Overview: Shown here is a 106-nucleotide sequence from Tripterygium wilfordii, a member of the family "MIR397 microRNA precursor family".
RNA sequence: UGAAAAAACAUCAUUGAGUGCAGCGUUGAUGAACACUUCUACAGUUGCUCUAGGCCUCGUUUCCUAUUUUAUGGGUUCAUCGACGCUGCACUCAAUUAUGUCUUUU
Numbered sequence: 001u002g003a004a005a006a007a008a009c010a011u012c013a014u015u016g017a018g019u020g021c022a023g024c025g026u027u028g029a030u031g032a033a034c035a036c037u038u039c040u041a042c043a044g045u046u047g048c049u050c051u052a053g054g055c056c057u058c059g060u061u062u063c064c065u066a067u068u069u070u071a072u073g074g075g076u077u078c079a080u081c082g083a084c085g086c087u088g089c090a091c092u093c094a095a096u097u098a099u100g101u102c103u104u105u106u
Stems, first nucleotide, its partner, number of pairs: 006103001008101004013096016030079005
Rfam links the family to the GO terms RISC complex and miRNA-mediated post-transcriptional gene silencing. The literature on the family includes a 2009 paper in Plant Cell by Wu et al., "Rice MicroRNA effector complexes and targets". The source organism's lineage runs through Eukaryota, Mesangiospermae, rosids, Celastraceae and Tripterygium. The family has 7 seed sequences and 496 matches in Rfam 15.1.